RNA: c-di-AMP riboswitch aptamer (ydaO/yuaA leader)
Organism: Paenibacillus cellulosilyticus
RNA sequence: AAUCUAACUGUGCUUAAUUUUCAACGGUUUCGUGUUGAAAAGCGGGGGAACCAAGUCAAUUGGGGCGAAUCGUUCGAUUAUCGAAUGUAGGGUACCAUCUUAUCCGAGUCCGUCAGCUAACCUCGUCAGCAGUAGAUGGGUCUU
Number, nucleotide and partner (000 for none) at each position: 001a000002a000003u000004c000005u000006a000007a000008c000009u000010g000011u131012g130013c129014u128015u000016a000017a000018u041019u040020u039021u038022c037023a036024a035025c034026g033027g000028u000029u000030u000031c000032g000033u026034g025035u024036u023037g022038a021039a020040a019041a018042g126043c125044g124045g123046g122047g121048g000049a000050a000051c000052c062053a061054a000055g000056u000057c000058a000059a000060u000061u053062g052063g111064g110065g109066c000067g000068a000069a000070u000071c087072g086073u085074u084075c000076g000077a000078u000079u000080a000081u000082c000083g000084a074085a073086u072087g071088u000089a000090g105091g104092g103093u102094a000095c000096c000097a000098u000099c000100u000101u000102a093103u092104c091105c090106g000107a000108g000109u065110c064111c063112g000113u000114c000115a000116g000117c000118u000119a000120a000121c047122c046123u045124c044125g043126u042127c000128a014129g013130c012131a011132g000133u000134a000135g000136a000137u000138g000139g000140g000141u000142c000143u000144u000